Source information
Shown here is a 135-nucleotide RNA from Cucurbita maxima, a member of the family "MIR396 microRNA precursor family". Rfam links the family to the GO terms miRNA-mediated post-transcriptional gene silencing and RISC complex. Pairs were carried over by alignment from the consensus structure, which was predicted with WAR.

[Rfam]
RNA sequence: GUUUGUAUUCUUCCACAGCUUUCUUGAACUGCAUCUUCCUGAGCCAAAUUCGCUCCUCUCUCUCUCUCUCUCUCUCAAAGCGUUCUUUGUUCAUUAACUUUUGCGGUUCAAUAAAGCUGUGGGAAGAUACAGACA
Numbered sequence: 001g002u003u004u005g006u007a008u009u010c011u012u013c014c015a016c017a018g019c020u021u022u023c024u025u026g027a028a029c030u031g032c033a034u035c036u037u038c039c040u041g042a043g044c045c046a047a048a049u050u051c052g053c054u055c056c057u058c059u060c061u062c063u064c065u066c067u068c069u070c071u072c073u074c075u076c077a078a079a080g081c082g083u084u085c086u087u088u089g090u091u092c093a094u095u096a097a098c099u100u101u102u103g104c105g106g107u108u109c110a111a112u113a114a115a116g117c118u119g120u121g122g123g124a125a126g127a128u129a130c131a132g133a134c135a
Stems, first nucleotide, its partner, number of pairs: 003132005013122003017118006024111004029106005